The family of this 84-nucleotide RNA sequence from Hipposideros armiger is "mir-548 microRNA precursor family". The family's consensus secondary structure was predicted with WAR. The literature on the family includes a 2010 paper in Blood by Jima et al., "Deep sequencing of the small RNA transcriptome of normal and malignant human B cells identifies hundreds of novel microRNAs".
RNA sequence: UAUUAGGUUGGUACAAAAAUAAUUGCAGUUUUUGCCAUUACAAACAAUGGCAAAAACUGCAGUUACUUUUGCACCAACCUAAUA
Numbered sequence: 001u002a003u004u005a006g007g008u009u010g011g012u013a014c015a016a017a018a019a020u021a022a023u024u025g026c027a028g029u030u031u032u033u034g035c036c037a038u039u040a041c042a043a044a045c046a047a048u049g050g051c052a053a054a055a056a057c058u059g060c061a062g063u064u065a066c067u068u069u070u071g072c073a074c075c076a077a078c079c080u081a082a083u084a
Base pairs, nucleotide, nucleotide: 001084002083003082004081005080006079007078008077009076010075011074012073014071015070016069017068018067020065021064022063023062024061025060026059027058028057029056030055031054032053033052034051035050036049037048038047039046